[Rfam]
RNA sequence: AGAGGUCAAAGUUCGAGGGCAUAGCAGAAGUGCUCACAGUAUGGCCGUGUCAGAUUAACAAAAUCUGUUAAUUCUUCU
Dot-bracket structure: ............[...[[.[..((.(((((((.......)))].]]]...((((((.....))))))....)))).))
A member of the RNA family "Mammalian CPEB3 ribozyme" from Alligator sinensis, 78 nucleotides long. Rfam describes the family as follows. The mammalian CPEB3 ribozyme is a self cleaving RNA located in the second intron of the CPEB3 gene which belongs to a family of genes regulating messenger RNA polyadenylation. Its family is annotated with RNA nuclease activity in the Gene Ontology. The family has 14 seed sequences and 5,706 matches in Rfam 15.1.